[Rfam]
Rfam assigns this 138-nucleotide RNA sequence from Tupaia belangeri to the family "Small nucleolar RNA SNORA47". Lineage of the source: Eukaryota > Vertebrata > Euteleostomi > Tupaiidae > Tupaia.
RNA sequence: UGGAGGACUGAGAAGGUGAGGCAGUCCUGUGCCAUGCUGCCUUCCACUGGUUAUGACCUCCGAAAGCAAAGGGCUGCCCAGGCAGCGCACGUCCCUCUGCCACCCUCAGAGGGGCAGCACUGUGCUGGCUGACAUUUG
Numbered sequence: 001u002g003g004a005g006g007a008c009u010g011a012g013a014a015g016g017u018g019a020g021g022c023a024g025u026c027c028u029g030u031g032c033c034a035u036g037c038u039g040c041c042u043u044c045c046a047c048u049g050g051u052u053a054u055g056a057c058c059u060c061c062g063a064a065a066g067c068a069a070a071g072g073g074c075u076g077c078c079c080a081g082g083c084a085g086c087g088c089a090c091g092u093c094c095c096u097c098u099g100c101c102a103c104c105c106u107c108a109g110a111g112g113g114g115c116a117g118c119a120c121u122g123u124g125c126u127g128g129c130u131g132a133c134a135u136u137u138g
Stems, first nucleotide, its partner, number of pairs: 002061005015048004019042007081130003087125001089123003097117005103112002